[Rfam]
RNA: msiK RNA
RNA sequence: GACCCUGCUCCAUUCACUACGGAUCGUCGGGCACGUACCGCCCGUGAAAGGAAGGCGU
Numbered sequence: 001g002a003c004c005c006u007g008c009u010c011c012a013u014u015c016a017c018u019a020c021g022g023a024u025c026g027u028c029g030g031g032c033a034c035g036u037a038c039c040g041c042c043c044g045u046g047a048a049a050g051g052a053a054g055g056c057g058u
Stems, first nucleotide, its partner, number of pairs: 010051002013048004028044005